Shown here is a 164-nucleotide RNA sequence from Panthera tigris, a member of the family "U1 spliceosomal RNA".
Its Rfam clan is "U1 clan".
Rfam describes the family as follows. U1 is a small nuclear RNA (snRNA) component of the spliceosome (involved in pre-mRNA splicing). Its 5' end forms complementary base pairs with the 5' splice junction, thus defining the 5' donor site of an intron. There are significant differences in sequence and secondary structure between metazoan and yeast U1 snRNAs, the latter being much longer (568 nucleotides as compared to 164 nucleotides in human). Nevertheless, secondary structure predictions suggest that all U1 snRNAs share a 'common core' consisting of helices I, II, the proximal region of III, and IV. This family does not contain the larger yeast sequences.
Gene Ontology terms of the family: pre-mRNA 5'-splice site binding, U1 snRNP and mRNA 5'-splice site recognition.
RNA sequence: AUACUUACCUGGCAGGGGAGAUACCAUGAUCACGAAGGUGGUUUUCCCAGGGUGAGGCUUAUCCAUUGCACUCUGGACGUGCUGACCUCUGUGAUUUCCCCAAAUGUGGGAAACUCGACUGCAUAAUUUGUGGUAGUGGCUGACUACAAUCGCGUUUUCCCCUG
Numbered sequence: 001a002u003a004c005u006u007a008c009c010u011g012g013c014a015g016g017g018g019a020g021a022u023a024c025c026a027u028g029a030u031c032a033c034g035a036a037g038g039u040g041g042u043u044u045u046c047c048c049a050g051g052g053u054g055a056g057g058c059u060u061a062u063c064c065a066u067u068g069c070a071c072u073c074u075g076g077a078c079g080u081g082c083u084g085a086c087c088u089c090u091g092u093g094a095u096u097u098c099c100c101c102a103a104a105u106g107u108g109g110g111a112a113a114c115u116c117g118a119c120u121g122c123a124u125a126a127u128u129u130g131u132g133g134u135a136g137u138g139g140c141u142g143a144c145u146a147c148a149a150u151c152g153c154g155u156u157u158u159c160c161c162c163u164g
Stems, first nucleotide, its partner, number of pairs: 012122004016048006023042005049090004054086001056083003060079001062077003092117003095113003099109002138163002142159002146155002